[Rfam]
RNA: BsrC
RNA sequence: AAUACCUAAAACAACAAAAGCCCUGCCUCUCUUUUGUCCUAACGGUUCCUUGACCGUGCCAGUGUGAAUCAGGCUUUAUUAAAAUUC
Numbered sequence: 001a002a003u004a005c006c007u008a009a010a011a012c013a014a015c016a017a018a019a020g021c022c023c024u025g026c027c028u029c030u031c032u033u034u035u036g037u038c039c040u041a042a043c044g045g046u047u048c049c050u051u052g053a054c055c056g057u058g059c060c061a062g063u064g065u066g067a068a069u070c071a072g073g074c075u076u077u078a079u080u081a082a083a084a085u086u087c
Stems, first nucleotide, its partner, number of pairs: 034067003039062002042057006